[Rfam]
RNA sequence: CAAGCAGACCGCCUUAUCGCUGGUUCUUUUAAGAAUCAGAGGAAAGUCUGGACACCAUAGAGCAGUAUAGCGGGUAACACCCGUCGGUAAAGUUUUAGUAUUAAAAUUUUAUUAGGACAAGUGCAACAGAAAGAAUGUACAGUUCGGCUGUAGUGAAAUCAGGUAAACUCUAUGCGGUGAAAUGCCAUGUAUAUCAGCAGUUAAGGGUUGCUCGCUCGUUGCUGAGGGGUAGGCAGAUAGAGCUAUUUGGCAACAAAUAGUCUAGAUAAAUGAUAAGGGCUUUUUAGGUAAUAAAAAGUACAGAAUCCGGCUUAUAGGUCUGCUUUUUUA
Numbered sequence: 001c002a003a004g005c006a007g008a009c010c011g012c013c014u015u016a017u018c019g020c021u022g023g024u025u026c027u028u029u030u031a032a033g034a035a036u037c038a039g040a041g042g043a044a045a046g047u048c049u050g051g052a053c054a055c056c057a058u059a060g061a062g063c064a065g066u067a068u069a070g071c072g073g074g075u076a077a078c079a080c081c082c083g084u085c086g087g088u089a090a091a092g093u094u095u096u097a098g099u100a101u102u103a104a105a106a107u108u109u110u111a112u113u114a115g116g117a118c119a120a121g122u123g124c125a126a127c128a129g130a131a132a133g134a135a136u137g138u139a140c141a142g143u144u145c146g147g148c149u150g151u152a153g154u155g156a157a158a159u160c161a162g163g164u165a166a167a168c169u170c171u172a173u174g175c176g177g178u179g180a181a182a183u184g185c186c187a188u189g190u191a192u193a194u195c196a197g198c199a200g201u202u203a204a205g206g207g208u209u210g211c212u213c214g215c216u217c218g219u220u221g222c223u224g225a226g227g228g229g230u231a232g233g234c235a236g237a238u239a240g241a242g243c244u245a246u247u248u249g250g251c252a253a254c255a256a257a258u259a260g261u262c263u264a265g266a267u268a269a270a271u272g273a274u275a276a277g278g279g280c281u282u283u284u285u286a287g288g289u290a291a292u293a294a295a296a297a298g299u300a301c302a303g304a305a306u307c308c309g310g311c312u313u314a315u316a317g318g319u320c321u322g323c324u325u326u327u328u329u330a
Stems, first nucleotide, its partner, number of pairs: 002325009011315001012278007020039008044313003048310005053179004060213004065175005070084005085115001086113012116170002121168002123164002138152006183235004194225005205217004242261008
RNA: Bacterial RNase P class A